[Rfam]
RNA sequence: AGUGCUGUUGGAGGAUGAAGCCUUUGAGUGAUCCAUCGGCAGAGCUUGAUGUUGCUGUGCUGACACUCGUGCUGCUGACAAUGCACU
Numbered sequence: 001a002g003u004g005c006u007g008u009u010g011g012a013g014g015a016u017g018a019a020g021c022c023u024u025u026g027a028g029u030g031a032u033c034c035a036u037c038g039g040c041a042g043a044g045c046u047u048g049a050u051g052u053u054g055c056u057g058u059g060c061u062g063a064c065a066c067u068c069g070u071g072c073u074g075c076u077g078a079c080a081a082u083g084c085a086c087u
Stems, first nucleotide, its partner, number of pairs: 002086004007082003010076002013034004018029001036063005044055002
RNA: Small nucleolar RNA SNORD71